Shown here is a 52-nucleotide sequence from Rousettus aegyptiacus, a member of the family "mir-1302 microRNA precursor family". The family has 24 seed sequences and 16,160 matches in Rfam 15.1. A search with the family's covariance model found it, with a score of 64 bits. The source organism's lineage runs through Eukaryota, Eumetazoa, Chordata, Teleostomi and Rousettus.

RNA sequence: UUUUUAUUAUAAGUAUGUACCAUGCAAUAUUUAGGAUGUACUUAUGCUAAAA
Dot-bracket structure: .....(.(((((.(((.(.(.(........)..).).))).))))).)....
Numbered sequence: 001u002u003u004u005u006a007u008u009a010u011a012a013g014u015a016u017g018u019a020c021c022a023u024g025c026a027a028u029a030u031u032u033a034g035g036a037u038g039u040a041c042u043u044a045u046g047c048u049a050a051a052a
Stems, first nucleotide, its partner, number of pairs: 006048001008046005014040003018036001020034001022031001